[Rfam]
A member of the RNA family "Small nucleolar RNA snoR136" from Rosa chinensis, 139 nucleotides long. For this family Rfam cites "Mining small RNA sequencing data: a new approach to identify small nucleolar RNAs in Arabidopsis" (Chen and Wu, Nucleic Acids Res, 2009). The family's RNA type in Rfam is H/ACA-box small nucleolar RNA. The source organism's lineage runs through Eukaryota, Streptophyta, Euphyllophyta, Mesangiospermae and Rosa. It scores 58 bits against the family's covariance model.
RNA sequence: AGGGCUUCAAAUUCGUAUUCAACAUGCACUGAAGUCGGUUUUGUGUGUGUUUUUUCUCAAGUGAAGCCGAGAAUGAGGUUCUCCUCGCUAUCUAAUGCCAUAUAUAAGUGUGGUAUUUGGACGUCGGAGAACUAAAUUA
Numbered sequence: 001a002g003g004g005c006u007u008c009a010a011a012u013u014c015g016u017a018u019u020c021a022a023c024a025u026g027c028a029c030u031g032a033a034g035u036c037g038g039u040u041u042u043g044u045g046u047g048u049g050u051u052u053u054u055u056c057u058c059a060a061g062u063g064a065a066g067c068c069g070a071g072a073a074u075g076a077g078g079u080u081c082u083c084c085u086c087g088c089u090a091u092c093u094a095a096u097g098c099c100a101u102a103u104a105u106a107a108g109u110g111u112g113g114u115a116u117u118u119g120g121a122c123g124u125c126g127g128a129g130a131a132c133u134a135a136a137u138u139a
Base pairs, nucleotide, nucleotide: 003068004067005066008063009062012059021051022050023049024048025047026046027045028044029043078132079131080130081129082128083127084126086123087122091121092120093119094118095117100111101110102109